This 120-nucleotide RNA sequence from Candidatus Frankia alpina belongs to the Rfam family "Group II catalytic intron D1-D4-2".
RNA sequence: GGAGGUUUUGUGGCCCUCCGGCGUCGCCCUGCGGGGGGAGGCGUCAAGUCACCUCGUGGUGCGUUAGUUAAAGACUGUCAUGCUGAACGUCGAGGAAAAGGCGGGGUAAGGCUCGUCAGA
Numbered sequence: 001g002g003a004g005g006u007u008u009u010g011u012g013g014c015c016c017u018c019c020g021g022c023g024u025c026g027c028c029c030u031g032c033g034g035g036g037g038g039a040g041g042c043g044u045c046a047a048g049u050c051a052c053c054u055c056g057u058g059g060u061g062c063g064u065u066a067g068u069u070a071a072a073g074a075c076u077g078u079c080a081u082g083c084u085g086a087a088c089g090u091c092g093a094g095g096a097a098a099a100g101g102c103g104g105g106g107u108a109a110g111g112c113u114c115g116u117c118a119g120a
Stems, first nucleotide, its partner, number of pairs: 001019005020045006027038004049120002052095005058084002061081001063079001065077004100117006
Rfam describes the family as follows. Group II introns are found in rRNA, tRNA and mRNA of organelles in fungi, plants and protists, and also in mRNA in bacteria.